[Rfam]
RNA sequence: GUCGGUGUAGCUCAGUUGGCUAGAGCGUUGGUCUCAUAGCGAAAGCGUGAUUUGAUCCCAGAUCAGAGAUAUCCAAAGGUCGAGAGUUCGAGCCUCCCCACCGACA
Numbered sequence: 001g002u003c004g005g006u007g008u009a010g011c012u013c014a015g016u017u018g019g020c021u022a023g024a025g026c027g028u029u030g031g032u033c034u035c036a037u038a039g040c041g042a043a044a045g046c047g048u049g050a051u052u053u054g055a056u057c058c059c060a061g062a063u064c065a066g067a068g069a070u071a072u073c074c075a076a077a078g079g080u081c082g083a084g085a086g087u088u089c090g091a092g093c094c095u096c097c098c099c100a101c102c103g104a105c106a
Base pairs, nucleotide, nucleotide: 001105002104003103004102005101006100007099010026011025012024013023028076029075030074031073082098084096085095086094
RNA: tRNA